[Rfam]
RNA sequence: GACUCUGUUUUCGAAUUGUCACCGUAUGGUGCGCGUUCCAAACCUACGUUUGGAUAGAAAGCAGAGUCGCUU
Numbered sequence: 001g002a003c004u005c006u007g008u009u010u011u012c013g014a015a016u017u018g019u020c021a022c023c024g025u026a027u028g029g030u031g032c033g034c035g036u037u038c039c040a041a042a043c044c045u046a047c048g049u050u051u052g053g054a055u056a057g058a059a060a061g062c063a064g065a066g067u068c069g070c071u072u
Stems, first nucleotide, its partner, number of pairs: 001068007009060004017035003020031004037054005
A member of the RNA family "DUF3800-IX RNA", 72 nucleotides long. From the family's description: Actinobacteria, Firmicutes (1 example), Nitrospirae, Proteobacteria, Verrucomicrobia (1 example). Rfam's curators put it in the seed alignment.